The family of this 88-nucleotide RNA from Litchfieldia salsa is "c-di-GMP-I riboswitch aptamer". Rfam's curators write: GEMM was predicted in a large-scale screen for bacterial structured RNA regulatory elements.
[Rfam]
Nucleotides: 088
Stems, first nucleotide, its partner, number of pairs: 012037002017032006040082004045078003048073003056067004
Number, partner (000 for none) and nucleotide at each position: 001000a002000c003000u004000g005000a006000a007000a008000a009000a010000a011000g012037g013036c014000a015000a016000a017032c018031u019030u020029g021028u022027u023000g024000a025000a026000a027022g028021g029020c030019a031018a032017g033000g034000a035000c036013g037012c038000a039000a040082a041081g042080c043079c044000g045078u046077g047076g048073a049072c050071c051000u052000a053000a054000a055000g056067g057066a058065u059064c060000u061000c062000u063000u064059g065058a066057u067056u068000u069000a070000u071050g072049g073048u074000a075000g076047c077046c078045a079043g080042g081041c082040u083000g084000c085000c086000a087000g088000g

NCBI's taxonomy places the organism under Bacteria, Bacillati, Bacillota, Bacillaceae, Litchfieldia.